Notes: The record is a 163-nucleotide RNA from Paenibacillus oceani, which matches "Group II catalytic intron D1-D4-3" in Rfam. NCBI's taxonomy places the organism under Bacteria, Bacillati, Caryophanales, Paenibacillaceae, Paenibacillus.
[Rfam]
RNA sequence: CAGUCCGUGAGGAUGGGUGCGGAGGUAGCGAAGGCAAAGCCCGGAACAGGCGGCGAACCAUGAUGGCUGACGGAGUCGGAUAACCUUGCGAAAAGUGGGAAUGUCCAAUACCGCUACAGACCCCGUAAGUUAGGAGGACUGGAUUCGGGUGAAAGUCGAAUGA
Dot-bracket structure: (.((((....)))).)............((...((...((((((..(((........((.(....(((.((((.((.((((..(((..........)))...)))).............)).)))).)))...).)).)))...))))))....))....)).
Gene Ontology term of the family: Group II intron splicing.